[Rfam]
RNA: SAM riboswitch aptamer (S box leader)
RNA sequence: CUCUUAUCCCGAGUUGGUGGAGGGUACAGGCCCUGUGAAACCCGGCAACCUGCAAUAGACGUACGUCUAACGCGAAGGUGCCAAACCUGAAGCAAGGUUUAAUUCCUUGGACGAUAAGAG
Dot-bracket structure: ((((((((....(..(((...(((..[..[)))......))))((((.(((((..................)))..))))))....]....](((((.......)))))...))))))))